[Rfam]
RNA sequence: GUCAGAGGGAAGCUCACCGUUGAGGUCACAUGCAGGGUGCUUGUCACUCGCUGUCCAAUGCCUCUGGGAAGGUCUGAGACAAGAGCCAUUAGCUGCCCUUGCAGGGCACCACCUGCUGCAGGUGGAUGAGUUACCAGCUAUGUUGGGCCCUGGGUGUGGGGCAAAUUGGGCAGGAGAAGCUAGUGGGAAAAACCCCCUAGUGGAUGCCCAGCCCCCUCCCAAGGGUUUGGGACAGACUCAUGGCUGGCAGCACUGAGUUCAAUGGGAUGAGGUGAGACCCCUCAGAGGCCUCAUAACCCAAUUCAGACUACUCUCCCUCUGAC
Numbered sequence: 001g002u003c004a005g006a007g008g009g010a011a012g013c014u015c016a017c018c019g020u021u022g023a024g025g026u027c028a029c030a031u032g033c034a035g036g037g038u039g040c041u042u043g044u045c046a047c048u049c050g051c052u053g054u055c056c057a058a059u060g061c062c063u064c065u066g067g068g069a070a071g072g073u074c075u076g077a078g079a080c081a082a083g084a085g086c087c088a089u090u091a092g093c094u095g096c097c098c099u100u101g102c103a104g105g106g107c108a109c110c111a112c113c114u115g116c117u118g119c120a121g122g123u124g125g126a127u128g129a130g131u132u133a134c135c136a137g138c139u140a141u142g143u144u145g146g147g148c149c150c151u152g153g154g155u156g157u158g159g160g161g162c163a164a165a166u167u168g169g170g171c172a173g174g175a176g177a178a179g180c181u182a183g184u185g186g187g188a189a190a191a192a193c194c195c196c197c198u199a200g201u202g203g204a205u206g207c208c209c210a211g212c213c214c215c216c217u218c219c220c221a222a223g224g225g226u227u228u229g230g231g232a233c234a235g236a237c238u239c240a241u242g243g244c245u246g247g248c249a250g251c252a253c254u255g256a257g258u259u260c261a262a263u264g265g266g267a268u269g270a271g272g273u274g275a276g277a278c279c280c281c282u283c284a285g286a287g288g289c290c291u292c293a294u295a296a297c298c299c300a301a302u303u304c305a306g307a308c309u310a311c312u313c314u315c316c317c318u319c320u321g322a323c
Base pairs, nucleotide, nucleotide: 001323002322003321004320008316009315010314013271014270015269016268017266018265022064023063024062025061035049036048037047038046039045074306075305076304077303078302084245085244086243087242094108095107096106097105098104109125110124111123112122113121114120126241127240128239129238130237131236132235147226148225149224150223151222272294273293274292275291276290278288
A member of the RNA family "Nuclear RNase P" from Chelydra serpentina, 323 nucleotides long. About the family: Ribonuclease P (RNase P) is a ubiquitous endoribonuclease, found in archaea, bacteria and eukarya as well as chloroplasts and mitochondria. Its best characterised activity is the generation of mature 5'-ends of tRNAs by cleaving the 5'-leader elements of precursor-tRNAs. Cellular RNase Ps are ribonucleoproteins. RNA from bacterial RNase Ps retains its catalytic activity in the absence of the protein subunit, i.e. it is a ribozyme.